Background
This 65-nucleotide RNA from Auanema sp. JU1783 belongs to the Rfam family "Small nucleolar RNA sn668". By type it is a C/D-box small nucleolar RNA. A search with the family's covariance model found it, with a score of 50 bits. The family has 6 seed sequences and 27 matches in Rfam 15.1. Taxonomically the source falls in Auanema (Eukaryota, Metazoa, Bilateria, Chromadorea).
[Rfam]
RNA sequence: UGUCAAUGAUGUUAGUUUCAAGACGGGAAUGACAAGCGAGAGAUUAUAACAGAACAGCUGAGACA
Dot-bracket structure: ((((.........................................................))))
Numbered sequence: 001u002g003u004c005a006a007u008g009a010u011g012u013u014a015g016u017u018u019c020a021a022g023a024c025g026g027g028a029a030u031g032a033c034a035a036g037c038g039a040g041a042g043a044u045u046a047u048a049a050c051a052g053a054a055c056a057g058c059u060g061a062g063a064c065a
Stems, first nucleotide, its partner, number of pairs: 001065004